[Rfam]
RNA: Small nucleolar RNA Z199
Nucleotides: 078
Stems, first nucleotide, its partner, number of pairs: 001078002004076003037047003
Number, partner (000 for none) and nucleotide at each position: 001078g002077a003000a004076u005075c006074a007000u008000g009000u010000g011000a012000u013000g014000a015000g016000a017000a018000a019000a020000a021000a022000c023000u024000g025000c026000a027000a028000c029000a030000a031000u032000a033000u034000g035000a036000u037047g038046g039045a040000u041000u042000c043000g044000u045039u046038c047037c048000a049000u050000g051000a052000u053000u054000c055000u056000u057000a058000g059000u060000a061000u062000u063000u064000a065000a066000g067000u068000c069000u070000c071000u072000g073000a074006u075005g076004a077002u078001c